[Rfam]
RNA sequence: GCCGGGAGCUGCGGUGGGCUCUUGUAAACCAACUUCUAGGUGGCUUGGGAUGAGGAAGAUCUGCCUGUCGGGUAACCACUUGGCUGCCUGUCGUCGUUGACCUAGUGUCCGUGUCAAGCUUAGCGUCGAUAGACCAUCAAUGGGGGAACUAGUUGGUGAUCGGUCGUAGUCAGUUCACUGGCUUAUAAAGAGAGAUGGAUGGCUCAGGCCCGUGAGGGAGCAGGCAAAAGUCUCCGCGCUAUGACGGUGGCCGGAUGGCACACGCGAGGCGUUGGGUUUCAAGUGCCGACAUUAUAUGGUCUCACUCAUUCUUUU
Numbered sequence: 001g002c003c004g005g006g007a008g009c010u011g012c013g014g015u016g017g018g019c020u021c022u023u024g025u026a027a028a029c030c031a032a033c034u035u036c037u038a039g040g041u042g043g044c045u046u047g048g049g050a051u052g053a054g055g056a057a058g059a060u061c062u063g064c065c066u067g068u069c070g071g072g073u074a075a076c077c078a079c080u081u082g083g084c085u086g087c088c089u090g091u092c093g094u095c096g097u098u099g100a101c102c103u104a105g106u107g108u109c110c111g112u113g114u115c116a117a118g119c120u121u122a123g124c125g126u127c128g129a130u131a132g133a134c135c136a137u138c139a140a141u142g143g144g145g146g147a148a149c150u151a152g153u154u155g156g157u158g159a160u161c162g163g164u165c166g167u168a169g170u171c172a173g174u175u176c177a178c179u180g181g182c183u184u185a186u187a188a189a190g191a192g193a194g195a196u197g198g199a200u201g202g203c204u205c206a207g208g209c210c211c212g213u214g215a216g217g218g219a220g221c222a223g224g225c226a227a228a229a230g231u232c233u234c235c236g237c238g239c240u241a242u243g244a245c246g247g248u249g250g251c252c253g254g255a256u257g258g259c260a261c262a263c264g265c266g267a268g269g270c271g272u273u274g275g276g277u278u279u280c281a282a283g284u285g286c287c288g289a290c291a292u293u294a295u296a297u298g299g300u301c302u303c304a305c306u307c308a309u310u311c312u313u314u315u
Stems, first nucleotide, its partner, number of pairs: 001044003004023007028041003047312008057302005066291006077285007086277005092271004097266001102264001105261004109254002113251004118245001121241006127166004132161002135158007143150002167190001192234005202225003209218003

About this RNA
A member of the RNA family "Metazoan signal recognition particle RNA" from Strongyloides venezuelensis, 315 nucleotides long. The base pairs follow the family's consensus structure, which is taken from published work. About the family: The signal recognition particle (SRP) is a universally conserved ribonucleoprotein. It is involved in the co-translational targeting of proteins to membranes. The eukaryotic SRP consists of a 300-nucleotide 7S RNA and six proteins: SRPs 72, 68, 54, 19, 14, and 9. Archaeal SRP consists of a 7S RNA and homologues of the eukaryotic SRP19 and SRP54 proteins. By type it is a non-coding RNA gene. It scores 157 bits against the family's covariance model. Gene Ontology terms of the family: SRP-dependent cotranslational protein targeting to membrane, signal sequence recognition and signal recognition particle, endoplasmic reticulum targeting.